[Rfam]
RNA sequence: GCGUAUUCUCAGGGCGGGGUGAAAGUCCCCACCGGCGGUAAGGGCUUCGGCCCAAGCCCGCGAGCACUUUCAACCUCUGUGGGCUGGAAGGAUAGCAGAUCCGGUGUAAUUCCGGAGCCGACGGUCAAAGUCCGGAUGAAAGAGAAUGAUC
Numbered sequence: 001g002c003g004u005a006u007u008c009u010c011a012g013g014g015c016g017g018g019g020u021g022a023a024a025g026u027c028c029c030c031a032c033c034g035g036c037g038g039u040a041a042g043g044g045c046u047u048c049g050g051c052c053c054a055a056g057c058c059c060g061c062g063a064g065c066a067c068u069u070u071c072a073a074c075c076u077c078u079g080u081g082g083g084c085u086g087g088a089a090g091g092a093u094a095g096c097a098g099a100u101c102c103g104g105u106g107u108a109a110u111u112c113c114g115g116a117g118c119c120g121a122c123g124g125u126c127a128a129a130g131u132c133c134g135g136a137u138g139a140a141a142g143a144g145a146a147u148g149a150u151c
Base pairs, nucleotide, nucleotide: 004148005147006146007145008144009143010142017029018028019027031131032130033120034119035061036060037059038058056118057117064096065095100116101115102114103113104112122134123133124132